[Rfam]
RNA sequence: GGCCGCGGUCAGUUUUGCGUGUUUGCAUCCAGCUGUGACGUCUUCUGCUGUGCAAAUCCAUGCAAAACUCUCUGCGUCC
Numbered sequence: 001g002g003c004c005g006c007g008g009u010c011a012g013u014u015u016u017g018c019g020u021g022u023u024u025g026c027a028u029c030c031a032g033c034u035g036u037g038a039c040g041u042c043u044u045c046u047g048c049u050g051u052g053c054a055a056a057u058c059c060a061u062g063c064a065a066a067a068c069u070c071u072c073u074g075c076g077u078c079c
Stems, first nucleotide, its partner, number of pairs: 004076005011069009021058001022056007031049003